[Rfam]
RNA sequence: UUGGUGAACAUUCAACGCUGUCGGUGAGUUUUGCGCUUCUGUAACAAACCAUCGACCGUUGACUGUACCCUGAGGGUGG
Numbered sequence: 001u002u003g004g005u006g007a008a009c010a011u012u013c014a015a016c017g018c019u020g021u022c023g024g025u026g027a028g029u030u031u032u033g034c035g036c037u038u039c040u041g042u043a044a045c046a047a048a049c050c051a052u053c054g055a056c057c058g059u060u061g062a063c064u065g066u067a068c069c070c071u072g073a074g075g076g077u078g079g
Stems, first nucleotide, its partner, number of pairs: 001073003009065002012062006020056007028049004
Annotation
Rfam assigns this 79-nucleotide RNA from Danio rerio to the family "mir-181 microRNA precursor family". Rfam 15.1 lists 3,490 matches to the family in 650 species. The organism belongs to Danio, within Eukaryota. Its family is annotated with miRNA-mediated post-transcriptional gene silencing and RISC complex in the Gene Ontology. The literature on the family includes a 2001 paper in Cell by Ambros, "microRNAs: tiny regulators with great potential".